The family of this 148-nucleotide RNA sequence from Phaseolus vulgaris is "MIR2119 microRNA precursor family". Its family is annotated with miRNA-mediated post-transcriptional gene silencing and RISC complex in the Gene Ontology.
[Rfam]
RNA sequence: AUCAAUGUUGUUACUUUUACACUUUAUUUUCUAUGCUUUUCCUCUACAACUCUCUUUUAUUUUGGAGAAAUGAAGUGGAUUUCUACUCUUUGAUUGGAGAAAAAAAGUGGAUUUCUAUUUUUUUCAAUCAAAGGGAGUUGUAGGGGAA
Numbered sequence: 001a002u003c004a005a006u007g008u009u010g011u012u013a014c015u016u017u018u019a020c021a022c023u024u025u026a027u028u029u030u031c032u033a034u035g036c037u038u039u040u041c042c043u044c045u046a047c048a049a050c051u052c053u054c055u056u057u058u059a060u061u062u063u064g065g066a067g068a069a070a071u072g073a074a075g076u077g078g079a080u081u082u083c084u085a086c087u088c089u090u091u092g093a094u095u096g097g098a099g100a101a102a103a104a105a106a107g108u109g110g111a112u113u114u115c116u117a118u119u120u121u122u123u124u125c126a127a128u129c130a131a132a133g134g135g136a137g138u139u140g141u142a143g144g145g146g147a148a
Base pairs, nucleotide, nucleotide: 039148040147041146042145043144044143045142046141047140048139049138050137051136052135053134054133055132056131057130059128060127061126065125066124067123068122069121070120073119074118077115078114079113